[Rfam]
RNA sequence: UAAUAGCAGAGAGCGUUAACGAUUGAAGCGGCAUCCUUUAUCCCCUUUUCGGGGAUGAAGAUAAAGCGGAAAGCGUGUUUAAAC
Numbered sequence: 001u002a003a004u005a006g007c008a009g010a011g012a013g014c015g016u017u018a019a020c021g022a023u024u025g026a027a028g029c030g031g032c033a034u035c036c037u038u039u040a041u042c043c044c045c046u047u048u049u050c051g052g053g054g055a056u057g058a059a060g061a062u063a064a065a066g067c068g069g070a071a072a073g074c075g076u077g078u079u080u081a082a083a084c
Base pairs, nucleotide, nucleotide: 019076020075021074023072024071028067029066033062034061035060038058039057040056041055042054043053044052045051
This 84-nucleotide RNA from Pedobacter cryophilus belongs to the Rfam family "Flavo-1 RNA". A search with the family's covariance model found it, with a score of 55 bits.